[Rfam]
RNA sequence: ACAAUGGUACUCCCGUCCAGCCACAGUUCACACAAUGGGGGCGGCUCGGUCAGAACGACGGAGGGGUGAGAUUCCCGUGA
Numbered sequence: 001a002c003a004a005u006g007g008u009a010c011u012c013c014c015g016u017c018c019a020g021c022c023a024c025a026g027u028u029c030a031c032a033c034a035a036u037g038g039g040g041g042c043g044g045c046u047c048g049g050u051c052a053g054a055a056c057g058a059c060g061g062a063g064g065g066g067u068g069a070g071a072u073u074c075c076c077g078u079g080a
Stems, first nucleotide, its partner, number of pairs: 012077001013044006045063003049059003064076003
The family of this 80-nucleotide RNA sequence is "pemK RNA". Rfam's curators put it in the seed alignment. Rfam classes the family as a cis-regulatory element.